[Rfam]
Nucleotides: 141
Stems, first nucleotide, its partner, number of pairs: 004014003023044001025042003029038002045062005075141001077139003083135004088130001091125001095121002098118001100116002103113002
Number, partner (000 for none) and nucleotide at each position: 001000a002000u003000g004014c005013c006012u007000c008000a009000g010000u011000a012006a013005g014004g015000a016000a017000a018000a019000u020000a021000a022000a023044g024000u025042u026041c027040c028000u029038g030037g031000g032000u033000a034000a035000u036000g037030c038029c039000c040027g041026g042025g043000u044023c045062c046061u047060c048059g049058u050000c051000c052000c053000c054000u055000u056000g057000u058049g059048c060047g061046a062045g063000a064000g065000g066000a067000a068000u069000g070000u071000u072000g073000a074000g075141c076000a077139g078138g079137u080000a081000a082000c083135g084134g085133u086132c087000a088130u089000c090000c091125u092000g093000c094000a095121g096120g097000a098118g099000a100116c101115c102000c103113g104112c105000c106000u107000a108000c109000u110000u111000u112104g113103u114000a115101g116100g117000a118098u119000g120096u121095c122000g123000c124000a125091g126000c127000g128000c129000a130088g131000g132086g133085a134084u135083c136000c137079g138078u139077c140000c141075g

A member of the RNA family "U12 minor spliceosomal RNA" from Scyliorhinus torazame, 141 nucleotides long. A reference for the family is Tarn and Steitz (1997), "Pre-mRNA splicing: the discovery of a new spliceosome doubles the challenge", Trends Biochem Sci. A search with the family's covariance model found it, with a score of 66 bits. Pairs were carried over by alignment from the consensus structure.